The family of this 68-nucleotide sequence from Parendozoicomonas haliclonae is "int-alpA RNA".
RNA sequence: GGCCAGUCUAGGGUAGCUCCCGAAAAGGCAGGAUUCCCGCUUGCCCUGACUGGUCCAUUUAAUUGGGG
Numbered sequence: 001g002g003c004c005a006g007u008c009u010a011g012g013g014u015a016g017c018u019c020c021c022g023a024a025a026a027g028g029c030a031g032g033a034u035u036c037c038c039g040c041u042u043g044c045c046c047u048g049a050c051u052g053g054u055c056c057a058u059u060u061a062a063u064u065g066g067g068g
Stems, first nucleotide, its partner, number of pairs: 001055008011021003027045005035068005
Rfam 15.1 lists 577 matches to the family in 491 species. NCBI's taxonomy places the organism under Bacteria, Pseudomonadati, Pseudomonadota, Gammaproteobacteria, Parendozoicomonas. Acidobacteria (1 example), Planctomycetes (1 example), Proteobacteria. The match comes from Rfam's covariance-model search (47 bits).